Rfam assigns this 115-nucleotide RNA sequence from Treponema phagedenis to the family "TD-2 RNA". On this family, see Weinberg et al., Nucleic Acids Res 2007: "Identification of 22 candidate structured RNAs in bacteria using the CMfinder comparative genomics pipeline".
[Rfam]
RNA sequence: ACGGGCACGGACGCCCGUGGUUCCAAGCAGAAGCGAUGUUUUAAAACAGAGUAGUUUACAAAGCUUUAAAACUCGCAGACUUAAUUUUGACAAGGAUGUCAAAAUUAAGUCGUGG
Numbered sequence: 001a002c003g004g005g006c007a008c009g010g011a012c013g014c015c016c017g018u019g020g021u022u023c024c025a026a027g028c029a030g031a032a033g034c035g036a037u038g039u040u041u042u043a044a045a046a047c048a049g050a051g052u053a054g055u056u057u058a059c060a061a062a063g064c065u066u067u068a069a070a071a072c073u074c075g076c077a078g079a080c081u082u083a084a085u086u087u088u089g090a091c092a093a094g095g096a097u098g099u100c101a102a103a104a105u106u107a108a109g110u111c112g113u114g115g
Base pairs, nucleotide, nucleotide: 001018002017003016004015005014006013034075035074036073038072039071040070041069042068043067044066045065078111079110080109081108082107083106084105085104086103087102088101089100090099091098
The family's RNA type in Rfam is small RNA. The match comes from Rfam's covariance-model search (61 bits). Rfam 15.1 lists 310 matches to the family in 11 species. The organism belongs to Treponema, within Bacteria.